[Rfam]
Overview: c-di-AMP riboswitch aptamer (ydaO/yuaA leader): a 183-nucleotide RNA sequence from Arthrobacter terrae.
RNA sequence: CCGCCGCCCACGCUCCGUUCUAGGAAAGGCAGAGACGGGGAACCCACUUUUUUGGGCUUCCCUCCCGAAGCCCUUGGGGUUAAGCCAUCAGGUCCCUACUGCCGCGUGCAGAUCAGGACCGGACGACCGGAUGCUCUCAUCCGAACCCGACAGCUCACCUCGCAGGCGCGUCAGAGAGGUUUU
Numbered sequence: 001c002c003g004c005c006g007c008c009c010a011c012g013c014u015c016c017g018u019u020c021u022a023g024g025a026a027a028g029g030c031a032g033a034g035a036c037g038g039g040g041a042a043c044c045c046a047c048u049u050u051u052u053u054g055g056g057c058u059u060c061c062c063u064c065c066c067g068a069a070g071c072c073c074u075u076g077g078g079g080u081u082a083a084g085c086c087a088u089c090a091g092g093u094c095c096c097u098a099c100u101g102c103c104g105c106g107u108g109c110a111g112a113u114c115a116g117g118a119c120c121g122g123a124c125g126a127c128c129g130g131a132u133g134c135u136c137u138c139a140u141c142c143g144a145a146c147c148c149g150a151c152a153g154c155u156c157a158c159c160u161c162g163c164a165g166g167c168g169c170g171u172c173a174g175a176g177a178g179g180u181u182u183u
Stems, first nucleotide, its partner, number of pairs: 005168004013034003036162005045076002077148003086125001088123001129142004

The pairing is the family consensus, mapped onto this sequence.
On this family, see Barrick et al., Proc Natl Acad Sci U S A 2004: "New RNA motifs suggest an expanded scope for riboswitches in bacterial genetic control".
It scores 49 bits against the family's covariance model.